[Rfam]
RNA sequence: AUUCUUAUAGUUGAAGUACAACGAUGGUUUUUCAUAUCAUUAGUCAUGGUUAUAAUCCAUGUGGGAAUA
Numbered sequence: 001a002u003u004c005u006u007a008u009a010g011u012u013g014a015a016g017u018a019c020a021a022c023g024a025u026g027g028u029u030u031u032u033c034a035u036a037u038c039a040u041u042a043g044u045c046a047u048g049g050u051u052a053u054a055a056u057c058c059a060u061g062u063g064g065g066a067a068u069a
Base pairs, nucleotide, nucleotide: 001068002067003066004065005064006063007062010022011021012020013019024040025039026038027037028036045061046060047059048058049057
A member of the RNA family "tRNA" from Saimiri boliviensis, 69 nucleotides long. The family's RNA type in Rfam is transfer RNA. A search with the family's covariance model found it, with a score of 49 bits.